This 231-nucleotide RNA from Albimonas donghaensis belongs to the Rfam family "permuted transfer-messenger RNA".
The family's RNA type in Rfam is non-coding RNA gene.
A search with the family's covariance model found it, with a score of 142 bits.
NCBI's taxonomy places the organism under Bacteria, Pseudomonadota, Alphaproteobacteria, Rhodobacterales, Albimonas.
Bacterial tmRNA, also known as 10Sa RNA or SsrA, is named for its dual tRNA and mRNA-like properties. Its role is to liberate the mRNA from a stalled ribosome. To accomplish this part of the tmRNA is used as a reading frame that ends in a translation stop signal. The broken mRNA is replaced in the ribosome by the tmRNA and translation of the tmRNA leads to addition of a proteolysis tag to the incomplete protein enabling recognition by a protease. Recently a number of permuted tmRNA genes have been found encoded in two parts. tmRNAs have been identified in eubacteria and some chloroplasts but are absent from archaeal and eukaryote nuclear genomes.
RNA sequence: GGCGAUAAACGCGCACGUAAUAAGCGGCUCGGACCCGGGGGCGGUACCCGGCGGCUCCACCAAUAUCCCUGCCAUCGGUCAUUGACGAUGGGGUUCGGGGAAGCGAGGGGCCGAAACAGGAUCGACGGACGUCUAAAGGUGUUAGCUUUCGCUCGGCAGGAUGCCACCGUUACCGGCUCAAAUUGUACAGUUGCCAAUGACAACCGUGCUCCGGUGGCCGUCGCUGCGUAA
Numbered sequence: 001g002g003c004g005a006u007a008a009a010c011g012c013g014c015a016c017g018u019a020a021u022a023a024g025c026g027g028c029u030c031g032g033a034c035c036c037g038g039g040g041g042c043g044g045u046a047c048c049c050g051g052c053g054g055c056u057c058c059a060c061c062a063a064u065a066u067c068c069c070u071g072c073c074a075u076c077g078g079u080c081a082u083u084g085a086c087g088a089u090g091g092g093g094u095u096c097g098g099g100g101a102a103g104c105g106a107g108g109g110g111c112c113g114a115a116a117c118a119g120g121a122u123c124g125a126c127g128g129a130c131g132u133c134u135a136a137a138g139g140u141g142u143u144a145g146c147u148u149u150c151g152c153u154c155g156g157c158a159g160g161a162u163g164c165c166a167c168c169g170u171u172a173c174c175g176g177c178u179c180a181a182a183u184u185g186u187a188c189a190g191u192u193g194c195c196a197a198u199g200a201c202a203a204c205c206g207u208g209c210u211c212c213g214g215u216g217g218c219c220g221u222c223g224c225u226g227c228g229u230a231a
Stems, first nucleotide, its partner, number of pairs: 001153005013142004025131002029128003035051005052113007154169003